A member of the RNA family "Hairpin ribozyme 1 from viruses-like metatranscriptomes", 172 nucleotides long. Its family is annotated with RNA nuclease activity in the Gene Ontology.
RNA sequence: CUUCUGUCCCCAUCACUAUGUUCUGCAUCUGCUUUCAAUGCAAAACAGGCGUCUGCCACUGUGGUGGGAGAGGAAGAGACCAGGGAAACAUGCUGUAGUCUAGUCUGGGUUUACGGGUAUGUAGCCAUUACAGCCAUAGACCUAACCAGAUUUCGGUAGCACAUUAACUGGC
Numbered sequence: 001c002u003u004c005u006g007u008c009c010c011c012a013u014c015a016c017u018a019u020g021u022u023c024u025g026c027a028u029c030u031g032c033u034u035u036c037a038a039u040g041c042a043a044a045a046c047a048g049g050c051g052u053c054u055g056c057c058a059c060u061g062u063g064g065u066g067g068g069a070g071a072g073g074a075a076g077a078g079a080c081c082a083g084g085g086a087a088a089c090a091u092g093c094u095g096u097a098g099u100c101u102a103g104u105c106u107g108g109g110u111u112u113a114c115g116g117g118u119a120u121g122u123a124g125c126c127a128u129u130a131c132a133g134c135c136a137u138a139g140a141c142c143u144a145a146c147c148a149g150a151u152u153u154c155g156g157u158a159g160c161a162c163a164u165u166a167a168c169u170g171g172c
Stems, first nucleotide, its partner, number of pairs: 001076004009068007048057003080171004091158005097152005